[Rfam]
RNA: Pseudomonas sRNA P13
RNA sequence: UGUGCCGCACUGACCGCUCGUCAGCUCGUCGCGGAUGCUUUACCAUGGUGACUUCGCGCCGGAUCAGCUCCGGCGU
Numbered sequence: 001u002g003u004g005c006c007g008c009a010c011u012g013a014c015c016g017c018u019c020g021u022c023a024g025c026u027c028g029u030c031g032c033g034g035a036u037g038c039u040u041u042a043c044c045a046u047g048g049u050g051a052c053u054u055c056g057c058g059c060c061g062g063a064u065c066a067g068c069u070c071c072g073g074c075g076u
Base pairs, nucleotide, nucleotide: 004030006028007027010024011023012022013021014020031057032056033055034054035053036051039048040047058074059073060072061071062070063069